[Rfam]
RNA sequence: GAUCAAGAAGUCCAACGUUAAGCCCCUCGGCUGGUUGGCUGGCAACCGCGUGUCGCACACGGUGCCCCUGAGGGAAGAUCCGCCGCUAAACAAAAGUUUGGUGGACGCGCGAUUU
Numbered sequence: 001g002a003u004c005a006a007g008a009a010g011u012c013c014a015a016c017g018u019u020a021a022g023c024c025c026c027u028c029g030g031c032u033g034g035u036u037g038g039c040u041g042g043c044a045a046c047c048g049c050g051u052g053u054c055g056c057a058c059a060c061g062g063u064g065c066c067c068c069u070g071a072g073g074g075a076a077g078a079u080c081c082g083c084c085g086c087u088a089a090a091c092a093a094a095a096g097u098u099u100g101g102u103g104g105a106c107g108c109g110c111g112a113u114u115u
Base pairs, nucleotide, nucleotide: 001080002079003078004077009040012038013037014036015035016034021032022031041066042065043064046062047061048060050058051057083104084103085102086101087100088099089098090097091096
Shown here is a 115-nucleotide RNA from Actinomyces sp. S4-C9, a member of the family "SAM (S-adenosyl methionine) riboswitch aptamer". Taxonomically the source falls in Actinomyces (Bacteria, Bacillati, Actinomycetales, Actinomycetaceae). SAM-IV is a mRNA element that regulates gene expression via direct sensing of S-adenosylmethionine (SAM or AdoMet). For this family Rfam cites "The aptamer core of SAM-IV riboswitches mimics the ligand-binding site of SAM-I riboswitches" (Weinberg et al., RNA, 2008). Pairs were carried over by alignment from the consensus structure, which is taken from published work.